[Rfam]
RNA: ZMP/ZTP riboswitch aptamer (pfl RNA motif)
Organism: Defluviitalea raffinosedens
RNA sequence: AUUACUUUGUAUGACUGGCGGAUUAAGUGGGAGUACCCACAGGGAAUACAAAGUAAAAAACGCCGACCGCCUGGGCAAACAGA
Numbered sequence: 001a002u003u004a005c006u007u008u009g010u011a012u013g014a015c016u017g018g019c020g021g022a023u024u025a026a027g028u029g030g031g032a033g034u035a036c037c038c039a040c041a042g043g044g045a046a047u048a049c050a051a052a053g054u055a056a057a058a059a060a061c062g063c064c065g066a067c068c069g070c071c072u073g074g075g076c077a078a079a080c081a082g083a
Stems, first nucleotide, its partner, number of pairs: 003055010015043002017071005027040004062076003